[Rfam]
RNA sequence: CAUCCUAAUGAUGAUGGAUAUGCAUUGUUAAAAGUAGUGCCUGAUCGGUUGAUGAUAAAUCCAUGCUGAGGGAAU
Numbered sequence: 001c002a003u004c005c006u007a008a009u010g011a012u013g014a015u016g017g018a019u020a021u022g023c024a025u026u027g028u029u030a031a032a033a034g035u036a037g038u039g040c041c042u043g044a045u046c047g048g049u050u051g052a053u054g055a056u057a058a059a060u061c062c063a064u065g066c067u068g069a070g071g072g073a074a075u
Base pairs, nucleotide, nucleotide: 002075003074004072005071006070